[Rfam]
RNA sequence: CUGUCUUGUGCUUCAACAGUGUUUGGAUAGAACAG
Numbered sequence: 001c002u003g004u005c006u007u008g009u010g011c012u013u014c015a016a017c018a019g020u021g022u023u024u025g026g027a028u029a030g031a032a033c034a035g
Stems, first nucleotide, its partner, number of pairs: 001035004006031002010028001012027005017021001
RNA: Iron response element I